About this RNA
The family of this 79-nucleotide RNA from Endobacter medicaginis is "Fluoride riboswitch aptamer (crcB RNA motif)". Lineage of the source: Bacteria > Pseudomonadati > Alphaproteobacteria > Acetobacteraceae > Endobacter. Pairs were carried over by alignment from the consensus structure, which is taken from published work.

[Rfam]
RNA sequence: CGGCGGAAACGGGAUGGGGUUCCCCGGUCAACCGCUCCUGCGCCCUGCCGGCGUUCGAGAUGAUGACUCCUGCAUCAUA
Numbered sequence: 001c002g003g004c005g006g007a008a009a010c011g012g013g014a015u016g017g018g019g020u021u022c023c024c025c026g027g028u029c030a031a032c033c034g035c036u037c038c039u040g041c042g043c044c045c046u047g048c049c050g051g052c053g054u055u056c057g058a059g060a061u062g063a064u065g066a067c068u069c070c071u072g073c074a075u076c077a078u079a
Base pairs, nucleotide, nucleotide: 010026011025012024013023016070017069018068019067020066021065035059036058037057